[Rfam]
RNA sequence: GGAGAAGCAAAGUGAUGAGCAUUACUGGCUGGAGCCCCAAAGAGGCAUAUAUGUGUGUGUGUGUGUGUGUGGUCUAUGAAUGCACACGUAUGUCUGGGAGUAUGAAUGUGUGUGACUGGUUGUAGGGAACUAGUUAUGUGCCUUCUGUUGGACCAUGACAGUCAAACUGAUAAGAUCUGAUUGCUUC
Numbered sequence: 001g002g003a004g005a006a007g008c009a010a011a012g013u014g015a016u017g018a019g020c021a022u023u024a025c026u027g028g029c030u031g032g033a034g035c036c037c038c039a040a041a042g043a044g045g046c047a048u049a050u051a052u053g054u055g056u057g058u059g060u061g062u063g064u065g066u067g068u069g070u071g072g073u074c075u076a077u078g079a080a081u082g083c084a085c086a087c088g089u090a091u092g093u094c095u096g097g098g099a100g101u102a103u104g105a106a107u108g109u110g111u112g113u114g115a116c117u118g119g120u121u122g123u124a125g126g127g128a129a130c131u132a133g134u135u136a137u138g139u140g141c142c143u144u145c146u147g148u149u150g151g152a153c154c155a156u157g158a159c160a161g162u163c164a165a166a167c168u169g170a171u172a173a174g175a176u177c178u179g180a181u182u183g184c185u186u187c
Stems, first nucleotide, its partner, number of pairs: 004187007014177003026164006036098004041093001043091001045089002048086001050084001052082003056078001061074001100113004116133006135157004140153001142151002
RNA: Small nucleolar RNA ZL1
Organism: Rousettus aegyptiacus